This 172-nucleotide RNA from Paenibacillus sp. Leaf72 belongs to the Rfam family "c-di-AMP riboswitch aptamer (ydaO/yuaA leader)".
The source organism's lineage runs through Bacteria, Bacilli, Caryophanales, Paenibacillaceae and Paenibacillus.
Rfam links the family to the GO terms cyclic-di-AMP binding and regulation of gene expression.
The literature on the family includes a 2004 paper in Proc Natl Acad Sci U S A by Barrick et al., "New RNA motifs suggest an expanded scope for riboswitches in bacterial genetic control".
About the family: This family represents a conserved RNA structure found upstream of the ydaO and yuaA genes in Bacillus subtilis and related genes in other bacteria.
RNA sequence: AAAUUAAACCAGCCUAAUUUUUUAUACCGCAAAGGUAUAGAAAUACGGGGGAACCACUUUGGGUGAAUUGAUUUCGAUGCUUGGACGGCUUGAUUCAAGUGUCUUGGAAAUCAUAGGGAACCUUCACAACCGAACCCCACAGCUAACCUCGUCGGCACCGGAAGGAGUUUCA
Numbered sequence: 001a002a003a004u005u006a007a008a009c010c011a012g013c014c015u016a017a018u019u020u021u022u023u024a025u026a027c028c029g030c031a032a033a034g035g036u037a038u039a040g041a042a043a044u045a046c047g048g049g050g051g052a053a054c055c056a057c058u059u060u061g062g063g064u065g066a067a068u069u070g071a072u073u074u075c076g077a078u079g080c081u082u083g084g085a086c087g088g089c090u091u092g093a094u095u096c097a098a099g100u101g102u103c104u105u106g107g108a109a110a111u112c113a114u115a116g117g118g119a120a121c122c123u124u125c126a127c128a129a130c131c132g133a134a135c136c137c138c139a140c141a142g143c144u145a146a147c148c149u150c151g152u153c154g155g156c157a158c159c160g161g162a163a164g165g166a167g168u169u170u171c172a
Stems, first nucleotide, its partner, number of pairs: 012156003019043010045152006061137003069113007116131002